RNA sequence: GGCCGGAUAAGGUGUUUACACCGCCAUCCGGCGUUGAUGAGAUGCCUGAUGGCGACGCUACUGCGUCUUAUCAGGCC
Numbered sequence: 001g002g003c004c005g006g007a008u009a010a011g012g013u014g015u016u017u018a019c020a021c022c023g024c025c026a027u028c029c030g031g032c033g034u035u036g037a038u039g040a041g042a043u044g045c046c047u048g049a050u051g052g053c054g055a056c057g058c059u060a061c062u063g064c065g066u067c068u069u070a071u072c073a074g075g076c077c
Base pairs, nucleotide, nucleotide: 002032003031004030005029006028007027008026011022012021013020014019044076045075046074047073048072049071050070051069054067055066056065057064058063

About this RNA
Nucleoid-associated noncoding RNA 4 (CssrE): a 77-nucleotide RNA sequence from [Enterobacter] lignolyticus. Rfam's curators write: In E. coli small RNA transcribed from repeated extragenic palindromic element (REP325) called nucleoid-associated ncRNA 4 (nRNA4) collaborates HU protein in condensing the DNA. The secondary structure but not the sequence of the RNA is important in nucleoid condensation. Also identified in Shigella as CssrE. Pairs were carried over by alignment from the consensus structure, which is taken from published work. The family's RNA type in Rfam is small RNA. It scores 66 bits against the family's covariance model. Rfam links the family to the GO terms protein binding, bacterial nucleoid DNA packaging and bacterial nucleoid. The source organism's lineage runs through Bacteria, Pseudomonadati, Pseudomonadota, Enterobacterales and [Enterobacter] lignolyticus.